[Rfam]
RNA sequence: GGCGUAAAGCGUCCGCAGCCGGUCGGGUAAGCGGGAUGUCAAAGCCCACGGCUCAACCGUGGACCGGCAUCCCGAACUGCCCGACUUGAGGCACGCCCGGGCAGGCGGAAUUCCCGGGGUAGCGGUGAAAUGCGUAGAUCUCGGGAGGAACACCGAAGGGGAAGCCAGCCUGCUGGGGCUGUCCUGACGGUCAGGGACGAAAGCCGGGGGAGCAAACCGGAUUAGAUACCCGGGUAGUCCCGGCCGUAAACCAUGGGCGCUAGGGCUUGUCCCUCUGGGGCAGGCUCGCAGCUAACGCGUUAAGCGCCCCGCCUGGGGAGUACGGGCGCAAGCCUGAAACUCAAAGGAAU
Numbered sequence: 001g002g003c004g005u006a007a008a009g010c011g012u013c014c015g016c017a018g019c020c021g022g023u024c025g026g027g028u029a030a031g032c033g034g035g036a037u038g039u040c041a042a043a044g045c046c047c048a049c050g051g052c053u054c055a056a057c058c059g060u061g062g063a064c065c066g067g068c069a070u071c072c073c074g075a076a077c078u079g080c081c082c083g084a085c086u087u088g089a090g091g092c093a094c095g096c097c098c099g100g101g102c103a104g105g106c107g108g109a110a111u112u113c114c115c116g117g118g119g120u121a122g123c124g125g126u127g128a129a130a131u132g133c134g135u136a137g138a139u140c141u142c143g144g145g146a147g148g149a150a151c152a153c154c155g156a157a158g159g160g161g162a163a164g165c166c167a168g169c170c171u172g173c174u175g176g177g178g179c180u181g182u183c184c185u186g187a188c189g190g191u192c193a194g195g196g197a198c199g200a201a202a203g204c205c206g207g208g209g210g211a212g213c214a215a216a217c218c219g220g221a222u223u224a225g226a227u228a229c230c231c232g233g234g235u236a237g238u239c240c241c242g243g244c245c246g247u248a249a250a251c252c253a254u255g256g257g258c259g260c261u262a263g264g265g266c267u268u269g270u271c272c273c274u275c276u277g278g279g280g281c282a283g284g285c286u287c288g289c290a291g292c293u294a295a296c297g298c299g300u301u302a303a304g305c306g307c308c309c310c311g312c313c314u315g316g317g318g319a320g321u322a323c324g325g326g327c328g329c330a331a332g333c334c335u336g337a338a339a340c341u342c343a344a345a346g347g348a349a350u
Stems, first nucleotide, its partner, number of pairs: 001313003009310001011198004018191003022085007030078002032074009046062006089185003092181002096177002100174007107151001111147008122133003159166002203244006212238002217233004255309006263287011291298002315342003324335004
RNA: Bacterial small subunit ribosomal RNA, nucleotides 591 to 940